Shown here is a 183-nucleotide sequence from Enterococcus italicus, a member of the family "Enterococcus sRNA B11". The family has 4 seed sequences and 31 matches in Rfam 15.1.

RNA sequence: GGCAACUUGCCCCGAAAGGGGGUGUUGUUGUGUUUUACCAAAUCUUAUCGUUAAUCGUUGCGCCAAUACUUGUUGGCAUAGUCACUGAACUAUUUUCUCAUUGGUUAGAAGAGAAGGACAAAGACAACGAUUGAAAGCAAGUUGCUUGCUAACCCACACGCCAGAUUCGCGCCUGGUGCAAAA
Numbered sequence: 001g002g003c004a005a006c007u008u009g010c011c012c013c014g015a016a017a018g019g020g021g022g023u024g025u026u027g028u029u030g031u032g033u034u035u036u037a038c039c040a041a042a043u044c045u046u047a048u049c050g051u052u053a054a055u056c057g058u059u060g061c062g063c064c065a066a067u068a069c070u071u072g073u074u075g076g077c078a079u080a081g082u083c084a085c086u087g088a089a090c091u092a093u094u095u096u097c098u099c100a101u102u103g104g105u106u107a108g109a110a111g112a113g114a115a116g117g118a119c120a121a122a123g124a125c126a127a128c129g130a131u132u133g134a135a136a137g138c139a140a141g142u143u144g145c146u147u148g149c150u151a152a153c154c155c156a157c158a159c160g161c162c163a164g165a166u167u168c169g170c171g172c173c174u175g176g177u178g179c180a181a182a183a
Stems, first nucleotide, its partner, number of pairs: 001146008010021004022038003052133009062077005078093005094116006159178005
On this family, see Shioya et al., PLoS One 2011: "Genome-wide identification of small RNAs in the opportunistic pathogen Enterococcus faecalis V583". The base pairs follow the family's consensus structure, which was predicted with RNAfold.